[Rfam]
RNA sequence: UCGAUCUCACUCCAGACCCUUUCCUUACGCCUGACCACGCGCACGUAAACGUUUGCCUUUACACACCCCGCACAACGGUUUUACGGUUGCGGUACGCCGGGAAAAUGACACAGGACGACAGGAGGGGGUCAAUGGCUGGUACGCUUUCAAAUUAGCGUGGAAUUUUGUCUGAUUCUGAGGGAAAGGGGAAGAGAAAAUUCUUCGCCGGGUGAAAACCAGCAAUAUUUUUGCAUAUUUUUUCGCAGACUUGUGCAAAAAUGAGCAAGCUCACUUUUGAUGUGGGGAUUACAAGGAGAAAAAUUGAUGAGUACCGAUCUGAAGUUCUCACUGAUGACGACCGUUAUUGCUUUGGGCCUGAUUGUCGCCACCGGUCUGACUGCCGUCCUGCAUUAAUCA
Number, nucleotide and partner (000 for none) at each position: 001u000002c000003g000004a000005u000006c000007u000008c000009a000010c000011u000012c000013c000014a000015g130016a129017c128018c127019c126020u125021u000022u000023c000024c000025u000026u000027a000028c000029g000030c122031c121032u120033g119034a000035c000036c000037a000038c000039g000040c000041g000042c091043a058044c000045g056046u055047a054048a053049a000050c000051g000052u000053u048054u047055g046056c045057c000058u043059u000060u000061a000062c000063a000064c000065a000066c000067c000068c000069c000070g000071c000072a000073c089074a088075a087076c086077g000078g000079u000080u000081u000082u000083a000084c000085g000086g076087u075088u074089g073090c000091g042092g000093u000094a000095c000096g000097c113098c000099g111100g000101g000102a000103a000104a000105a000106u000107g000108a000109c000110a000111c099112a000113g097114g000115a000116c000117g000118a000119c033120a032121g031122g030123a000124g000125g020126g019127g018128g017129u016130c015131a000132a000133u000134g000135g000136c000137u000138g000139g000140u000141a000142c193143g000144c191145u190146u000147u161148c160149a000150a158151a000152u000153u000154a000155g000156c000157g000158u150159g000160g148161a147162a000163u000164u000165u000166u000167g000168u186169c185170u184171g000172a000173u181174u180175c000176u000177g000178a000179g000180g174181g173182a000183a000184a170185g169186g168187g000188g000189a000190a145191g144192a000193g142194a000195a000196a000197a000198u000199u000200c000201u000202u000203c000204g000205c000206c000207g000208g000209g000210u000211g000212a000213a000214a000215a000216c000217c000218a000219g000220c000221a000222a000223u000224a000225u000226u000227u000228u000229u000230g000231c000232a000233u000234a000235u000236u000237u000238u000239u000240u000241c000242g000243c000244a000245g311246a000247c000248u000249u000250g000251u000252g000253c000254a000255a000256a000257a000258a000259u000260g000261a000262g000263c000264a000265a000266g000267c000268u000269c000270a000271c000272u291273u000274u000275u000276g287277a286278u285279g000280u000281g000282g000283g000284g000285a278286u277287u276288a000289c000290a000291a272292g000293g000294a000295g000296a000297a000298a000299a000300a000301u000302u000303g000304a000305u000306g000307a000308g000309u000310a000311c245312c000313g000314a000315u000316c000317u000318g000319a000320a000321g000322u000323u000324c000325u000326c000327a000328c000329u000330g000331a000332u000333g000334a000335c000336g000337a000338c000339c000340g000341u000342u000343a000344u000345u000346g000347c000348u000349u000350u000351g000352g000353g000354c000355c000356u000357g000358a000359u000360u000361g000362u000363c000364g000365c000366c000367a000368c000369c000370g000371g000372u000373c000374u000375g000376a000377c000378u000379g000380c000381c000382g000383u000384c000385c000386u000387g000388c000389a000390u000391u000392a000393a000394u000395c000396a000
Enterobacterial sRNA STnc550: a 396-nucleotide RNA from Pluralibacter gergoviae. The organism belongs to Pluralibacter, within Bacteria. By type it is a small RNA. It scores 272 bits against the family's covariance model. The family's consensus secondary structure was predicted with CMfinder.